Description
The record is a 104-nucleotide RNA sequence from Pontibacter ummariensis, which matches "Bacteroidales small SRP" in Rfam. The source organism's lineage runs through Bacteria, Bacteroidota, Cytophagales, Hymenobacteraceae and Pontibacter. The family is grouped with related families in Rfam's "SRP clan".

[Rfam]
RNA sequence: UUUGUAUCGGCAAGCCGGCACGGCCAGCUCCCGCCGAACUCCCCCAGGACCGGAAGGUAGCAAGGGUAGGUGGUUGAGCGGCGCGAUGUUCGGCUUGCCACUUU
Dot-bracket structure: ........(((((((..(((((((........................................................)).)).)))...))))))).....